[Rfam]
RNA sequence: AGAUGAGAGAUACACCCCGCUCGCAGGAGACUGCGGGCGACGCCGAGGCGGGGCAUCCCCAGCGCCGCUUUGGCCGUGCCUUCGCGCACACCACUGGAGCCACUGGCUCCGGAUCUCCUCACCGAUCGGA
Numbered sequence: 001a002g003a004u005g006a007g008a009g010a011u012a013c014a015c016c017c018c019g020c021u022c023g024c025a026g027g028a029g030a031c032u033g034c035g036g037g038c039g040a041c042g043c044c045g046a047g048g049c050g051g052g053g054c055a056u057c058c059c060c061a062g063c064g065c066c067g068c069u070u071u072g073g074c075c076g077u078g079c080c081u082u083c084g085c086g087c088a089c090a091c092c093a094c095u096g097g098a099g100c101c102a103c104u105g106g107c108u109c110c111g112g113a114u115c116u117c118c119u120c121a122c123c124g125a126u127c128g129g130a
Stems, first nucleotide, its partner, number of pairs: 004121004009117002018039009042074006049067003053063002076089004094112008122129002

Shown here is a 130-nucleotide sequence from Streptomyces corynorhini, a member of the family "Streptomyces RNA 5676".
It scores 118 bits against the family's covariance model.
Rfam classes the family as a small RNA.